[Rfam]
RNA sequence: UUGCUGUGUCUUUGGUGGUGCUUGCACCACACGUCGAUCUCUGAUCGGCAAAGACGCACGUAAAUCCUCAGACCUGAGGACACUUCUGGACCGGGGGGCGGUACCCCGCGGCUCCACCAUAUGCUCACUUCCUGCUAGGGGACGCCCUUGCAGGGCCUUGGCGGAUACCCGGUUGAUCACCGGAGAAAGCGGUUCGAAACCGUUGUGAGCAUUUGAUGGGGCCGAAAUAGGAUCGACAGGGUGGAUAGGGAAAGCGGCGUGCCGGUGAGAAACACCGUUAUCGUUCAAACUUUACAACUGCAAACACCAACGCAGCUCCGAUGGAGAUGGCAAUCGCUGCCUAAGCUCUGCUUAGUCAGUUUUGUCUGAACCCUCAUGGCGCUUCCCGGCGAGCGUAGCAACAGAAUCGUCGGACC
Numbered sequence: 001u002u003g004c005u006g007u008g009u010c011u012u013u014g015g016u017g018g019u020g021c022u023u024g025c026a027c028c029a030c031a032c033g034u035c036g037a038u039c040u041c042u043g044a045u046c047g048g049c050a051a052a053g054a055c056g057c058a059c060g061u062a063a064a065u066c067c068u069c070a071g072a073c074c075u076g077a078g079g080a081c082a083c084u085u086c087u088g089g090a091c092c093g094g095g096g097g098g099c100g101g102u103a104c105c106c107c108g109c110g111g112c113u114c115c116a117c118c119a120u121a122u123g124c125u126c127a128c129u130u131c132c133u134g135c136u137a138g139g140g141g142a143c144g145c146c147c148u149u150g151c152a153g154g155g156c157c158u159u160g161g162c163g164g165a166u167a168c169c170c171g172g173u174u175g176a177u178c179a180c181c182g183g184a185g186a187a188a189g190c191g192g193u194u195c196g197a198a199a200c201c202g203u204u205g206u207g208a209g210c211a212u213u214u215g216a217u218g219g220g221g222c223c224g225a226a227a228u229a230g231g232a233u234c235g236a237c238a239g240g241g242u243g244g245a246u247a248g249g250g251a252a253a254g255c256g257g258c259g260u261g262c263c264g265g266u267g268a269g270a271a272a273c274a275c276c277g278u279u280a281u282c283g284u285u286c287a288a289a290c291u292u293u294a295c296a297a298c299u300g301c302a303a304a305c306a307c308c309a310a311c312g313c314a315g316c317u318c319c320g321a322u323g324g325a326g327a328u329g330g331c332a333a334u335c336g337c338u339g340c341c342u343a344a345g346c347u348c349u350g351c352u353u354a355g356u357c358a359g360u361u362u363u364g365u366c367u368g369a370a371c372c373c374u375c376a377u378g379g380c381g382c383u384u385c386c387c388g389g390c391g392a393g394c395g396u397a398g399c400a401a402c403a404g405a406a407u408c409g410u411c412g413g414a415c416c
Stems, first nucleotide, its partner, number of pairs: 008055007056262005069254001073250002083241002086239003092108005109224007263277004272284002383393001386412001388410001391407001
Record summary
Rfam assigns this 416-nucleotide RNA to the family "Alphaproteobacteria transfer-messenger RNA". It is annotated as a non-coding RNA gene.